[Rfam]
RNA sequence: AGCACAAUGAUAUGAAAAUGCUUAUUAUAUAGAGAGAAAAUGAUAACAUAAAAAUUAUACUCAUAUGGAAUACGAUGUGUACU
Numbered sequence: 001a002g003c004a005c006a007a008u009g010a011u012a013u014g015a016a017a018a019u020g021c022u023u024a025u026u027a028u029a030u031a032g033a034g035a036g037a038a039a040a041u042g043a044u045a046a047c048a049u050a051a052a053a054a055u056u057a058u059a060c061u062c063a064u065a066u067g068g069a070a071u072a073c074g075a076u077g078u079g080u081a082c083u
Base pairs, nucleotide, nucleotide: 001083002082004080005077006076008074009073
A member of the RNA family "Small nucleolar RNA SNORD115" from Callorhinus ursinus, 83 nucleotides long. On this family, see Cavaille et al., Proc Natl Acad Sci U S A 2000: "Identification of brain-specific and imprinted small nucleolar RNA genes exhibiting an unusual genomic organization". Pairs were carried over by alignment from the consensus structure, which was predicted with PFOLD.